[Rfam]
RNA sequence: CGGUUUACCGUGGCCAAGGGAAUUCGGCAAAUUAGCCCCGUAACUUCGGGAUAAGGGGUGCCUGCCAUGAAGAUGGCAGGUCGCAGUGACGAGGGAGCGCUGACUGUCUAAUAACAACAUAGCUGAUCGCCAAACUGUAAAGUCUAGUACGAUCAGUGAAUCCUGCCCAGUGCAGGUACCUGAAAACCUCGUUCAAGGGGAAGAAGGGCCUGUCAACGGCGGGGGUAACUAUAACCCUCUUAAGGUAGCGUAGUACCUUGCCGCUUAAUUGGCGGCUUGCAUGAAUGGAUCAACGAGCGCUCUACUGUCCCUGGCCACGCGCCGGUGAACUUUACAUCCUAGUGCAGAGUCUAGGGA
Numbered sequence: 001c002g003g004u005u006u007a008c009c010g011u012g013g014c015c016a017a018g019g020g021a022a023u024u025c026g027g028c029a030a031a032u033u034a035g036c037c038c039c040g041u042a043a044c045u046u047c048g049g050g051a052u053a054a055g056g057g058g059u060g061c062c063u064g065c066c067a068u069g070a071a072g073a074u075g076g077c078a079g080g081u082c083g084c085a086g087u088g089a090c091g092a093g094g095g096a097g098c099g100c101u102g103a104c105u106g107u108c109u110a111a112u113a114a115c116a117a118c119a120u121a122g123c124u125g126a127u128c129g130c131c132a133a134a135c136u137g138u139a140a141a142g143u144c145u146a147g148u149a150c151g152a153u154c155a156g157u158g159a160a161u162c163c164u165g166c167c168c169a170g171u172g173c174a175g176g177u178a179c180c181u182g183a184a185a186a187c188c189u190c191g192u193u194c195a196a197g198g199g200g201a202a203g204a205a206g207g208g209c210c211u212g213u214c215a216a217c218g219g220c221g222g223g224g225g226u227a228a229c230u231a232u233a234a235c236c237c238u239c240u241u242a243a244g245g246u247a248g249c250g251u252a253g254u255a256c257c258u259u260g261c262c263g264c265u266u267a268a269u270u271g272g273c274g275g276c277u278u279g280c281a282u283g284a285a286u287g288g289a290u291c292a293a294c295g296a297g298c299g300c301u302c303u304a305c306u307g308u309c310c311c312u313g314g315c316c317a318c319g320c321g322c323c324g325g326u327g328a329a330c331u332u333u334a335c336a337u338c339c340u341a342g343u344g345c346a347g348a349g350u351c352u353a354g355g356g357a
Stems, first nucleotide, its partner, number of pairs: 001324004009319008018310003035059005044049001060081009082086001094303007101295002105119003122157008130147001134143003160290004165220003170217002172213005179208003187200004221239006240244001260276006338355005
This 357-nucleotide part of an RNA from an uncultured archaeon belongs to the Rfam family "Archaeal large subunit ribosomal RNA". For this family Rfam cites "Crystal structure of the ribosome at 5.5 A resolution" (Yusupov et al., Science, 2001).